[Rfam]
RNA: Streptomyces RNA 1601
RNA sequence: UGCGACCGGCCGGACAUGUAUGUGUGCCCGGCCCGCAAGUGGAGGCUCCGUACUCCCACCUGGCUGGCCCGUUGGGCCGGCAGGUCAAUGGUCAGGCUGCGCCCCGCGGUGAUUCUGCGGCGGUGCUCCCGGUCUACUAAGGAGCCCCGCCUGUGUGCCGUUCGGGGCGUUUUUC
Numbered sequence: 001u002g003c004g005a006c007c008g009g010c011c012g013g014a015c016a017u018g019u020a021u022g023u024g025u026g027c028c029c030g031g032c033c034c035g036c037a038a039g040u041g042g043a044g045g046c047u048c049c050g051u052a053c054u055c056c057c058a059c060c061u062g063g064c065u066g067g068c069c070c071g072u073u074g075g076g077c078c079g080g081c082a083g084g085u086c087a088a089u090g091g092u093c094a095g096g097c098u099g100c101g102c103c104c105c106g107c108g109g110u111g112a113u114u115c116u117g118c119g120g121c122g123g124u125g126c127u128c129c130c131g132g133u134c135u136a137c138u139a140a141g142g143a144g145c146c147c148c149g150c151c152u153g154u155g156u157g158c159c160g161u162u163c164g165g166g167g168c169g170u171u172u173u174u175c
Stems, first nucleotide, its partner, number of pairs: 004093005012029002030086004036062002039059004043054002063081007101168006107160003116155003119151005125145005
Dot-bracket structure: ...(((((...((..............))((((..((.((((((........)).)))).))(((((((.....))))))).))))..))))).......(((((((((......((((((((.(((((...........))))).))))).)))..)))..)))))).......